[Rfam]
A member of the RNA family "Listeria sRNA sbrA" from Jeotgalibacillus alimentarius, 69 nucleotides long. It scores 47 bits against the family's covariance model.
Nucleotides: 069
Stems, first nucleotide, its partner, number of pairs: 004035006041061009
Number, partner (000 for none) and nucleotide at each position: 001000u002000a003000g004035g005034a006033u007032c008031u009030a010000g011000a012000u013000u014000u015000a016000a017000c018000c019000c020000c021000u022000a023000a024000a025000c026000u027000c028000c029000c030009u031008a032007g033006a034005u035004u036000u037000c038000u039000u040000u041061g042060a043059c044058g045057g046056c047055a048054g049053a050000a051000u052000u053049u054048c055047u056046g057045c058044c059043g060042u061041c062000c063000u064000u065000u066000u067000u068000u069000a
The family's RNA type in Rfam is small RNA.